RNA sequence: GUCCGAAAUACAGUCAUGAUGUCUUUUCCAAGCACAUAUCUGAUUGCUCUGUGUGGAAAAUGUUGCUGAGUGAUUUUGAAA
Numbered sequence: 001g002u003c004c005g006a007a008a009u010a011c012a013g014u015c016a017u018g019a020u021g022u023c024u025u026u027u028c029c030a031a032g033c034a035c036a037u038a039u040c041u042g043a044u045u046g047c048u049c050u051g052u053g054u055g056g057a058a059a060a061u062g063u064u065g066c067u068g069a070g071u072g073a074u075u076u077u078g079a080a081a
Stems, first nucleotide, its partner, number of pairs: 002080001004078003008074002010071002
RNA: Small nucleolar RNA SNORD121A
Organism: Podargus strigoides